Record summary: Shown here is a 130-nucleotide RNA, a member of the family "LOOT RNA".

[Rfam]
RNA sequence: GACCUAAAACCAUUUUGCCAGCGUCGGCAAAAUGGUCAUGGUCAAAAUCGCACCAAAGUAAAGAUCCCAUCAUCAGGAUCCGCUUUGGUGCGUCAUAUUGGGAAACCAAUAUGUGAGUUUGAAAAGACUC
Numbered sequence: 001g002a003c004c005u006a007a008a009a010c011c012a013u014u015u016u017g018c019c020a021g022c023g024u025c026g027g028c029a030a031a032a033u034g035g036u037c038a039u040g041g042u043c044a045a046a047a048u049c050g051c052a053c054c055a056a057a058g059u060a061a062a063g064a065u066c067c068c069a070u071c072a073u074c075a076g077g078a079u080c081c082g083c084u085u086u087g088g089u090g091c092g093u094c095a096u097a098u099u100g101g102g103a104a105a106c107c108a109a110u111a112u113g114u115g116a117g118u119u120u121g122a123a124a125a126g127a128c129u130c
Stems, first nucleotide, its partner, number of pairs: 001043004009036011049092011063080005094113008115130006
By type it is a small RNA. Rfam's curators put it in the seed alignment.